The family of this 101-nucleotide RNA sequence from Muraenolepis orangiensis is "mir-214 microRNA precursor family". The literature on the family includes a 2008 paper in Gene by Shao et al., "Identification of novel chicken microRNAs and analysis of their genomic organization". Rfam 15.1 lists 1,411 matches to the family in 642 species. The family's consensus secondary structure was predicted with RNAalifold. NCBI's taxonomy places the organism under Eukaryota, Opisthokonta, Bilateria, Vertebrata, Muraenolepis.

[Rfam]
RNA sequence: GCCAGCCAGCCGCAGUGUGUCCGCCUGUCUACACUUGCUGUGCAGUACUUGAUCCAGCCUGUACAGCAGGCACAGACAGGCAGACAGACGUCAGGCUCUCC
Number, nucleotide and partner (000 for none) at each position: 001g000002c000003c000004a000005g000006c000007c000008a000009g000010c000011c000012g000013c000014a000015g000016u000017g000018u086019g085020u000021c000022c000023g081024c080025c079026u078027g077028u076029c075030u074031a000032c000033a000034c070035u000036u068037g067038c066039u065040g064041u063042g000043c061044a060045g059046u000047a000048c000049u000050u000051g000052a000053u000054c000055c000056a000057g000058c000059c045060u044061g043062u000063a041064c040065a039066g038067c037068a036069g000070g034071c000072a000073c000074a030075g029076a028077c027078a026079g025080g024081c023082a000083g000084a000085c019086a018087g000088a000089c000090g000091u000092c000093a000094g000095g000096c000097u000098c000099u000100c000101c000